[Rfam]
RNA: ZMP/ZTP riboswitch aptamer (pfl RNA motif)
Organism: Intestinibaculum porci
RNA sequence: ACUGUGUUAUACAACUGGCGGAACGUGGAACUAACCACAUGGAAGUAUAAUCUGAGAGAGUCGACCGUCUGGGCCAUUGAC
Number, nucleotide and partner (000 for none) at each position: 001a000002c000003u054004g053005u000006g051007u050008u049009a048010u047011a046012c045013a000014a000015c042016u041017g069018g068019c067020g066021g065022a000023a000024c000025g038026u037027g036028g035029a000030a000031c000032u000033a000034a000035c028036c027037a026038c025039a000040u000041g016042g015043a000044a000045g012046u011047a010048u009049a008050a007051u006052c000053u004054g003055a000056g000057a000058g000059a000060g074061u073062c072063g000064a000065c021066c020067g019068u018069c017070u000071g000072g062073g061074c060075c000076a000077u000078u000079g000080a000081c000